[Rfam]
RNA sequence: ACUGGAAGCUGCUGGGACCAGUUGGGACCAGUCAUGGGCAAAAUUAAUUUUUUUUUCUGCUGUUGCAGUCUUCCUAGAGCAAAGUGGAGGUCUCUGUCUGCUUUAGGAUAGCUAACUAAAUCAGAUCGUUCCCCUCCUUACACG
Numbered sequence: 001a002c003u004g005g006a007a008g009c010u011g012c013u014g015g016g017a018c019c020a021g022u023u024g025g026g027a028c029c030a031g032u033c034a035u036g037g038g039c040a041a042a043a044u045u046a047a048u049u050u051u052u053u054u055u056u057c058u059g060c061u062g063u064u065g066c067a068g069u070c071u072u073c074c075u076a077g078a079g080c081a082a083a084g085u086g087g088a089g090g091u092c093u094c095u096g097u098c099u100g101c102u103u104u105a106g107g108a109u110a111g112c113u114a115a116c117u118a119a120a121u122c123a124g125a126u127c128g129u130u131c132c133c134c135u136c137c138u139u140a141c142a143c144g
Stems, first nucleotide, its partner, number of pairs: 004074003008069005025061002086137005094128001096126003100122001102120005

The family of this 144-nucleotide RNA from Buphagus erythrorhynchus is "Small Cajal body specific RNA 3". Rfam's curators write: scaRNAs are a specific class of small nuclear RNAs which localise to the Cajal bodies and guide the modification of RNA polymerase II transcribed spliceosomal RNAs U1, U2, U4, U5 and U12. On this family, see Darzacq et al., EMBO J 2002: "Cajal body-specific small nuclear RNAs: a novel class of 2'-O-methylation and pseudouridylation guide RNAs". NCBI's taxonomy places the organism under Eukaryota, Teleostomi, Archosauria, Sturnidae, Buphagus. Gene Ontology terms of the family: RNA processing, Cajal body and nucleolus.